Source information
Rfam assigns this 96-nucleotide sequence from Pseudothioglobus singularis to the family "Bacterial small signal recognition particle RNA". Rfam links the family to the GO terms SRP-dependent cotranslational protein targeting to membrane, signal sequence recognition and signal recognition particle, plasma membrane targeting. On this family, see Rosenblad et al., Nucleic Acids Res 2003: "SRPDB: Signal Recognition Particle Database". Lineage of the source: Bacteria > Pseudomonadati > Pseudothioglobaceae (SeqCode) > Pseudothioglobus (SeqCode) > Pseudothioglobus singularis (SeqCode).
RNA sequence: CGAGGGUAAACCGACAAUAAAUAGUUAUGAACCCCGCCAGGCCUGGAAGGGAGCAACGGUAAUAAUUUUUUUAUGUGUUGGAUUCUAUUCUCGGCA
Numbered sequence: 001c002g003a004g005g006g007u008a009a010a011c012c013g014a015c016a017a018u019a020a021a022u023a024g025u026u027a028u029g030a031a032c033c034c035c036g037c038c039a040g041g042c043c044u045g046g047a048a049g050g051g052a053g054c055a056a057c058g059g060u061a062a063u064a065a066u067u068u069u070u071u072u073a074u075g076u077g078u079u080g081g082a083u084u085c086u087a088u089u090c091u092c093g094g095c096a
Stems, first nucleotide, its partner, number of pairs: 004090005009083001011081004015075001017074005023067006034059003042051003